[Rfam]
This 147-nucleotide sequence from Achromobacter sp. AONIH1 belongs to the Rfam family "radC RNA". Rfam classes the family as a cis-regulatory element.
RNA sequence: ACGCUGCGUCCAUGCUUGCUGACGUAGUCAGCGACAUGCCAGGCAACCAUCGGUCUUCGAGGUUGCGGCGCAGCUCCCGCUGCGCGACCACACCAGUUCGCACCGCAUCCUUACUCGAACGGCCAUCGGUUCUCCGGUGGUGGAUGC
Numbered sequence: 001a002c003g004c005u006g007c008g009u010c011c012a013u014g015c016u017u018g019c020u021g022a023c024g025u026a027g028u029c030a031g032c033g034a035c036a037u038g039c040c041a042g043g044c045a046a047c048c049a050u051c052g053g054u055c056u057u058c059g060a061g062g063u064u065g066c067g068g069c070g071c072a073g074c075u076c077c078c079g080c081u082g083c084g085c086g087a088c089c090a091c092a093c094c095a096g097u098u099c100g101c102a103c104c105g106c107a108u109c110c111u112u113a114c115u116c117g118a119a120c121g122g123c124c125a126u127c128g129g130u131u132c133u134c135c136g137g138u139g140g141u142g143g144a145u146g147c
Stems, first nucleotide, its partner, number of pairs: 011038004015033001018032006043066006052089004068085006116146002122141008